[Rfam]
The record is a 105-nucleotide RNA sequence from Podargus strigoides, which matches "SL1 RNA" in Rfam. A reference for the family is Dassanayake et al. (2001), "Trans-spliced leader RNA, 5S-rRNA genes and novel variant orphan spliced-leader of the lymphatic filarial nematode Wuchereria bancrofti, and a sensitive polymerase chain reaction based detection assay", Gene. This family represents the SL1 RNA. SL1 is commonly located in the spacer region between 5S-rRNA genes where it is involved in trans-splicing. The family's consensus secondary structure is taken from published work. By type it is a non-coding RNA gene.
RNA sequence: GGUUUAAUUACCCAAGUUUGAGGUAAUUGAAUGUUUCGGCCCAUAGCUACGGCUACUGUGGCUUGAAGUAAAAUUUUGGAACGCUCUGCAAUUCUGCAGAGCAAC
Numbered sequence: 001g002g003u004u005u006a007a008u009u010a011c012c013c014a015a016g017u018u019u020g021a022g023g024u025a026a027u028u029g030a031a032u033g034u035u036u037c038g039g040c041c042c043a044u045a046g047c048u049a050c051g052g053c054u055a056c057u058g059u060g061g062c063u064u065g066a067a068g069u070a071a072a073a074u075u076u077u078g079g080a081a082c083g084c085u086c087u088g089c090a091a092u093u094c095u096g097c098a099g100a101g102c103a104a105c
Stems, first nucleotide, its partner, number of pairs: 003031010034068004039062003083102007
Dot-bracket structure: ..((((((((((.........))))))))))..((((.(((..................)))..))))..............(((((((......)))))))...